[Rfam]
RNA sequence: CGGCAAGAUGUGUGUUGUGGGCCUACGCUGCUCCGCAGCUACGACCCCCACCACCGCCCCUUACUCGCCUGCGGCUCCACGGAUCUUGCUCUGCGAGGCA
Numbered sequence: 001c002g003g004c005a006a007g008a009u010g011u012g013u014g015u016u017g018u019g020g021g022c023c024u025a026c027g028c029u030g031c032u033c034c035g036c037a038g039c040u041a042c043g044a045c046c047c048c049c050a051c052c053a054c055c056g057c058c059c060c061u062u063a064c065u066c067g068c069c070u071g072c073g074g075c076u077c078c079a080c081g082g083a084u085c086u087u088g089c090u091c092u093g094c095g096a097g098g099c100a
Base pairs, nucleotide, nucleotide: 002090003089004088005087006086007085008084009083012054013053014052016050017049019047020046021045024041025040027039028038029037030036059082060081067075068074069073
Shown here is a 100-nucleotide sequence from Pseudomonas sp. URIL14HWK12:I9, a member of the family "traJ-II RNA". The family's consensus secondary structure is taken from published work. Lineage of the source: Bacteria > Pseudomonadota > Gammaproteobacteria > Pseudomonadales > Pseudomonas.